Source information:
The record is a 250-nucleotide sequence from Paenibacillaceae bacterium GAS479, which matches "BsrG" in Rfam. Rfam links the family to the GO terms toxin activity and autolysis. The base pairs follow the family's consensus structure, which was predicted with WAR. Lineage of the source: Bacteria > Bacillati > Bacillota > Caryophanales > Paenibacillaceae. About the family: bsrE, bsrG and bsrH pair through intermolecular interactions with antisense sRNAs. They form type I toxin/antitoxin system that includes an mRNA encoding for a short, toxic peptide (bsrE, bsrG and bsrH) and an antitoxin that is comprised of an antisense RNA. bsrG encodes a 39-amino-acid toxin, and the 180 nucleotide antisense sRNA called SR4 acts as the antitoxin (they overlap by 123 nucleotides). SR4 interaction with the 3'UTR of bsrG RNA promotes bsrG degradation and inhibits its translation. It scores 78 bits against the family's covariance model. The family has 6 seed sequences and 614 matches in Rfam 15.1.
[Rfam]
RNA sequence: AGUACAUAGAUGGCUGUUGGGCGGUCAGGCUAAUCUCCCGGAAGGGAGGUGAUGCCAUGGAGGUAUCUCAAACGCUGACGUUGAUGAUUUCUUUCGCAACGUUAAUCGUGCUGAUUCUUUCCUUCAACAAAAAGAAAUAGACCGCCCACCCGUGACAAGGUACGGUCUAUUCUUUGAACAAACCUCAGUCUAAGCCCACCGCCCAUAAAGCGGCUAUGUGCCCGGGUCACAGAUGCUGGUAACAUCUGCG
Dot-bracket structure: .((((.(((.(((.(..(((((((((....(.(.(((((....))))).).)......(((((.(.......((..........))........((...............)).).)))))..................))))))))).........(((...........)))...................).)))((((.......))))))).))))......(.((((((.(...).)))))).)
Numbered sequence: 001a002g003u004a005c006a007u008a009g010a011u012g013g014c015u016g017u018u019g020g021g022c023g024g025u026c027a028g029g030c031u032a033a034u035c036u037c038c039c040g041g042a043a044g045g046g047a048g049g050u051g052a053u054g055c056c057a058u059g060g061a062g063g064u065a066u067c068u069c070a071a072a073c074g075c076u077g078a079c080g081u082u083g084a085u086g087a088u089u090u091c092u093u094u095c096g097c098a099a100c101g102u103u104a105a106u107c108g109u110g111c112u113g114a115u116u117c118u119u120u121c122c123u124u125c126a127a128c129a130a131a132a133a134g135a136a137a138u139a140g141a142c143c144g145c146c147c148a149c150c151c152g153u154g155a156c157a158a159g160g161u162a163c164g165g166u167c168u169a170u171u172c173u174u175u176g177a178a179c180a181a182a183c184c185u186c187a188g189u190c191u192a193a194g195c196c197c198a199c200c201g202c203c204c205a206u207a208a209a210g211c212g213g214c215u216a217u218g219u220g221c222c223c224g225g226g227u228c229a230c231a232g233a234u235g236c237u238g239g240u241a242a243c244a245u246c247u248g249c250g
Stems, first nucleotide, its partner, number of pairs: 002221004007216003011198003015194001018148009031052001033050001035048005059121005065115001073086002095113002158174003199213004228250001230248006237241001